RNA: Glycine riboswitch aptamer
RNA sequence: CCGGUCCACAUGGGAGAGCCCUCUCCGUUCCCCGGAAUCGAGAGGCGCCGAAGGCGCAACUUCCGCCCGGAAACGCUCAGGCAAAAGGACCGUGUGGUUACC
Numbered sequence: 001c002c003g004g005u006c007c008a009c010a011u012g013g014g015a016g017a018g019c020c021c022u023c024u025c026c027g028u029u030c031c032c033c034g035g036a037a038u039c040g041a042g043a044g045g046c047g048c049c050g051a052a053g054g055c056g057c058a059a060c061u062u063c064c065g066c067c068c069g070g071a072a073a074c075g076c077u078c079a080g081g082c083a084a085a086a087g088g089a090c091c092g093u094g095u096g097g098u099u100a101c102c
Stems, first nucleotide, its partner, number of pairs: 006097008020045006047082003050078002054076003060070002